[Rfam]
The family of this 111-nucleotide RNA sequence from Handroanthus impetiginosus is "Small nucleolar RNA Z107/R87". The organism belongs to Handroanthus, within Eukaryota. On this family, see Barneche et al., J Mol Biol 2001: "Identification of 66 box C/D snoRNAs in Arabidopsis thaliana: extensive gene duplications generated multiple isoforms predicting new ribosomal RNA 2'-O-methylation sites". Gene Ontology terms of the family: RNA processing and nucleolus.
RNA sequence: AAUCGCUGUGACGACUCAGACAAUUCAAGCUCAACAGACCGGAUUGCAGGUUUCUCUCGCUAUUCAGAGAUUGUUCCUUGCCUGUCGAUUACCCCGCUGAACUGAGCGAUA
Numbered sequence: 001a002a003u004c005g006c007u008g009u010g011a012c013g014a015c016u017c018a019g020a021c022a023a024u025u026c027a028a029g030c031u032c033a034a035c036a037g038a039c040c041g042g043a044u045u046g047c048a049g050g051u052u053u054c055u056c057u058c059g060c061u062a063u064u065c066a067g068a069g070a071u072u073g074u075u076c077c078u079u080g081c082c083u084g085u086c087g088a089u090u091a092c093c094c095c096g097c098u099g100a101a102c103u104g105a106g107c108g109a110u111a
Stems, first nucleotide, its partner, number of pairs: 002110005